[Rfam]
RNA sequence: UUGGGCUGAGGUAGUUGUUUGUACAGUUUAAGGGUCUGUGACACCACCCUCUGUUGGAGAUAACUGUACAGGCCACUGCCUUGCCUAG
Numbered sequence: 001u002u003g004g005g006c007u008g009a010g011g012u013a014g015u016u017g018u019u020u021g022u023a024c025a026g027u028u029u030a031a032g033g034g035u036c037u038g039u040g041a042c043a044c045c046a047c048c049c050u051c052u053g054u055u056g057g058a059g060a061u062a063a064c065u066g067u068a069c070a071g072g073c074c075a076c077u078g079c080c081u082u083g084c085c086u087a088g
Stems, first nucleotide, its partner, number of pairs: 001088006008082008017073011032049004051059002
RNA: let-7 microRNA precursor family